[Rfam]
RNA: Bacterial large signal recognition particle RNA
RNA sequence: CCGUGCUAGACGGGGAGGUAGCGGUGCCCUAUAACCUGCAAUCCGCUAUAGCAGGGUUGAAGUCCUACUCUAGGCUUUUCUGCUGUGAGGUCUGCCCUAGAUAAGUGGUGUUGACAGUCAGGUCCUGCGCAACGGAAACUCAUGAACCUCGUCAGGUCCGGAAGGAAGCAGCGAUAAGUGAGAAUUUCCGUGUGCCGUAGGGAAACCUUACUCGAGCUAACUGUCUAGGUACCGCUCGGAGUGGAAUUGUCGAAAGUAGGUGCACGG
Numbered sequence: 001c002c003g004u005g006c007u008a009g010a011c012g013g014g015g016a017g018g019u020a021g022c023g024g025u026g027c028c029c030u031a032u033a034a035c036c037u038g039c040a041a042u043c044c045g046c047u048a049u050a051g052c053a054g055g056g057u058u059g060a061a062g063u064c065c066u067a068c069u070c071u072a073g074g075c076u077u078u079u080c081u082g083c084u085g086u087g088a089g090g091u092c093u094g095c096c097c098u099a100g101a102u103a104a105g106u107g108g109u110g111u112u113g114a115c116a117g118u119c120a121g122g123u124c125c126u127g128c129g130c131a132a133c134g135g136a137a138a139c140u141c142a143u144g145a146a147c148c149u150c151g152u153c154a155g156g157u158c159c160g161g162a163a164g165g166a167a168g169c170a171g172c173g174a175u176a177a178g179u180g181a182g183a184a185u186u187u188c189c190g191u192g193u194g195c196c197g198u199a200g201g202g203a204a205a206c207c208u209u210a211c212u213c214g215a216g217c218u219a220a221c222u223g224u225c226u227a228g229g230u231a232c233c234g235c236u237c238g239g240a241g242u243g244g245a246a247u248u249g250u251c252g253a254a255a256g257u258a259g260g261u262g263c264a265c266g267g
Stems, first nucleotide, its partner, number of pairs: 001267006009058003012030004017025001019023001035055005064260006073251003080244005086238004093231002097228006105221002107218003116212003120208004124201006130192002133190005139182005149174004157166003